[Rfam]
Record summary:
The family of this 326-nucleotide sequence from Bambusicola thoracicus is "7SK RNA". The family's RNA type in Rfam is non-coding RNA gene. The family has 45 seed sequences and 49,373 matches in Rfam 15.1. Rfam's curators write: 7SK was discovered as an abundant small nuclear RNA in the mid-70s but a possible function has only recently been suggested. Two independent studies have found that 7SK RNA binds the CDK9/cyclin T complex (known as elongation factor P-TEFb). P-TEFb activates transcription by phosphorylating the C-terminal domain of RNA polymerase II. This process is negatively regulated by the 7SK RNP. The secondary structure of 7SK RNA shown here was proposed by Wasserman and Steitz on the basis of chemical modification and enzymatic cleavage experiments. The literature on the family includes a 2002 paper in Curr Biol by Blencowe, "Transcription: surprising role for an elusive small nuclear RNA". Taxonomically the source falls in Bambusicola (Eukaryota, Opisthokonta, Dinosauria, Theropoda).
Nucleotides: 326
Stems, first nucleotide, its partner, number of pairs: 002107002005102006013093002018090002024087007032079002035074002037070003042067004047061001117170001119167003122139004127135002140162003148157002200270003207263001209261001212258003222251003227247003231243001294326001298320009
Number, partner (000 for none) and nucleotide at each position: 001000a002107g003106a004000u005102g006101u007100g008099a009098g010097g011000a012000c013093g014092a015000u016000c017000u018090g019089g020000c021000u022000a023000u024087g025086a026085c027084a028083u029082c030081u031000g032079u033078c034000a035074c036073c037070c038069c039068a040000u041000u042067g043066a044065u045064c046000a047061c048000c049000a050000g051000g052000g053000g054000u055000g056000a057000u058000g059000u060000a061047g062000c063000u064045g065044a066043u067042c068039u069038g070037g071000g072000u073036g074035g075000c076000u077000a078033g079032g080000g081030g082029g083028g084027u085026g086025u087024c088000u089019u090018c091000u092014u093013c094000c095000u096000c097010u098009c099008u100007c101006a102005c103000u104000g105000c106003u107002c108000c109000a110000u111000a112000u113000g114000c115000a116000u117170c118000c119167c120166u121165u122139u123138c124137a125136a126000a127135g128134c129000u130000g131000c132000a133000c134128g135127u136125u137124u138123g139122a140162u141161u142160g143000a144000a145000g146000a147000c148157g149156a150000c151000g152000a153000c154000c155000u156149u157148c158000c159000c160142u161141g162140a163000u164000a165121g166120a167119g168000a169000u170117g171000u172000a173000c174000c175000a176000u177000u178000c179000a180000c181000u182000g183000c184000u185000c186000a187000a188000a189000g190000g191000u192000a193000u194000a195000c196000g197000g198000u199000a200270g201269c202268u203000g204000c205000a206000a207263u208000c209261c210000c211000a212258u213257g214256c215000u216000a217000g218000a219000a220000c221000c222251u223250c224249c225000a226000a227247a228246c229245a230000u231243g232000c233000u234000c235000a236000a237000g238000g239000u240000u241000c242000a243231u244000u245229u246228g247227u248000a249224g250223g251222a252000u253000a254000a255000u256214g257213u258212a259000g260000a261209g262000u263207a264000g265000u266000c267000a268202a269201g270200c271000u272000u273000c274000c275000a276000g277000g278000a279000c280000u281000g282000u283000g284000g285000a286000c287000a288000c289000a290000c291000c292000c293000a294326u295000a296000u297000g298320a299319g300318g301317c302316a303315c304314u305313g306312c307000a308000u309000g310000g311000g312306g313305c314304a315303g316302u317301g318300c319299c320298u321000g322000a323000a324000g325000g326294a